Description: Shown here is a 77-nucleotide RNA from Culex quinquefasciatus, a member of the family "mir-2 microRNA precursor family". The source organism's lineage runs through Eukaryota, Pterygota, Culicoidea, Culex and Culex pipiens complex. The base pairs follow the family's consensus structure, which was predicted with PFOLD.

[Rfam]
RNA sequence: CAGUUCGUAAAAAUGGUUGUGCCGUGUGUACAUUUGAACAUUCAAUAUUCAUAUCACAGCCAUUUUGACGAGUUUGA
Numbered sequence: 001c002a003g004u005u006c007g008u009a010a011a012a013a014u015g016g017u018u019g020u021g022c023c024g025u026g027u028g029u030a031c032a033u034u035u036g037a038a039c040a041u042u043c044a045a046u047a048u049u050c051a052u053a054u055c056a057c058a059g060c061c062a063u064u065u066u067g068a069c070g071a072g073u074u075u076g077a
Stems, first nucleotide, its partner, number of pairs: 005071004010066012025053003